[Rfam]
RNA sequence: AUCGGCAUUGCGGAUAAGCGGUUGACACAGUGCCGCUCGCAAUGUGUCGUCUACCGGCUUUGACCACGAAUGUAACGGCGGGGAUGGGAAGAUGAACGAAAGGUCGGUGCGAUUUGGCCCCGGCCUUUUCUGUC
Numbered sequence: 001a002u003c004g005g006c007a008u009u010g011c012g013g014a015u016a017a018g019c020g021g022u023u024g025a026c027a028c029a030g031u032g033c034c035g036c037u038c039g040c041a042a043u044g045u046g047u048c049g050u051c052u053a054c055c056g057g058c059u060u061u062g063a064c065c066a067c068g069a070a071u072g073u074a075a076c077g078g079c080g081g082g083g084a085u086g087g088g089a090a091g092a093u094g095a096a097c098g099a100a101a102g103g104u105c106g107g108u109g110c111g112a113u114u115u116g117g118c119c120c121c122g123g124c125c126u127u128u129u130c131u132g133u134c
Base pairs, nucleotide, nucleotide: 003049004048005047006046007043008042009041017037018036019035020034052091055086056085058083061080062079064078065077094133096131098129099128100127101126102125103124104123105122106121107120109118110117
This 134-nucleotide RNA sequence from Neorhizobium alkalisoli belongs to the Rfam family "Alphaproteobacterial sRNA ar35". Rfam classes the family as a small RNA.